[Rfam]
RNA sequence: CGCCCCGUCACUGGGGAGUAGCCGCUCUUUUUAUAGAGGCUUACGUCAACAUACUUGGCUUUGCGGCCAUGGCGUAAGCGGCAGCAAUGCUUGGCAAGACCUUUGACCACAUCGCACACCGAUAGGCCGGGGUAGCGACGUGGUCAUUCGUCUUGGUACCGGCCCUG
Numbered sequence: 001c002g003c004c005c006c007g008u009c010a011c012u013g014g015g016g017a018g019u020a021g022c023c024g025c026u027c028u029u030u031u032u033a034u035a036g037a038g039g040c041u042u043a044c045g046u047c048a049a050c051a052u053a054c055u056u057g058g059c060u061u062u063g064c065g066g067c068c069a070u071g072g073c074g075u076a077a078g079c080g081g082c083a084g085c086a087a088u089g090c091u092u093g094g095c096a097a098g099a100c101c102u103u104u105g106a107c108c109a110c111a112u113c114g115c116a117c118a119c120c121g122a123u124a125g126g127c128c129g130g131g132g133u134a135g136c137g138a139c140g141u142g143g144u145c146a147u148u149c150g151u152c153u154u155g156g157u158a159c160c161g162g163c164c165c166u167g
Stems, first nucleotide, its partner, number of pairs: 026037003039079010056069005085167002
Source information
Rfam assigns this 167-nucleotide RNA from Burkholderiales bacterium PBB3 to the family "Manganese Mn2+ riboswitch aptamer (yybP-ykoY)". It scores 94 bits against the family's covariance model. A reference for the family is Price et al. (2015), "Mn(2+)-sensing mechanisms of yybP-ykoY orphan riboswitches", Mol Cell. This RNA was originally discovered in E. coli during a large scale screen and was named SraF. The family was later found to exist upstream of related families of protein genes in many bacteria, including the the yybP and ykoK genes in B. subtilis. The specific functions of these proteins are unknown, but this structured RNA element may be involved in their genetic regulation as a riboswitch. Lineage of the source: Bacteria > Pseudomonadati > Pseudomonadota > Betaproteobacteria > Burkholderiales. The pairing is the family consensus, mapped onto this sequence.